[Rfam]
RNA: ZMP/ZTP riboswitch aptamer (pfl RNA motif)
RNA sequence: AACAAGUUAUACAACUGACGGAAGUGGAACUGACCACAGGGAGUAUAACUGUAAUUAAGCCGACCGUCUGGGCAAAAAAA
Number, nucleotide and partner (000 for none) at each position: 001a000002a000003c000004a000005a050006g049007u048008u047009a046010u045011a044012c043013a000014a000015c040016u039017g068018a067019c066020g065021g064022a000023a000024g037025u036026g035027g034028a000029a000030c000031u000032g000033a000034c027035c026036a025037c024038a000039g016040g015041g000042a000043g012044u011045a010046u009047a008048a007049c006050u005051g000052u000053a000054a000055u000056u000057a000058a000059g073060c072061c071062g000063a000064c021065c020066g019067u018068c017069u000070g000071g061072g060073c059074a000075a000076a000077a000078a000079a000080a000